[Rfam]
RNA sequence: UCUCUGUGCUAAGUAGUACUGCCGCAGGGAGUGCUGUGGACUGAUUCUAUCCCCUGCGCAGUCCUACUUACAACAGGGA
Numbered sequence: 001u002c003u004c005u006g007u008g009c010u011a012a013g014u015a016g017u018a019c020u021g022c023c024g025c026a027g028g029g030a031g032u033g034c035u036g037u038g039g040a041c042u043g044a045u046u047c048u049a050u051c052c053c054c055u056g057c058g059c060a061g062u063c064c065u066a067c068u069u070a071c072a073a074c075a076g077g078g079a
Stems, first nucleotide, its partner, number of pairs: 001079007010070007018062002024057006
A member of the RNA family "mir-252 microRNA precursor family" from Branchiostoma floridae, 79 nucleotides long.
Gene Ontology terms of the family: RISC complex and miRNA-mediated post-transcriptional gene silencing.
The family's consensus secondary structure was predicted with RNAalifold.
NCBI's taxonomy places the organism under Eukaryota, Metazoa, Deuterostomia, Leptocardii, Branchiostoma.
The family is grouped with related families in Rfam's "mir-252 microRNA precursor family".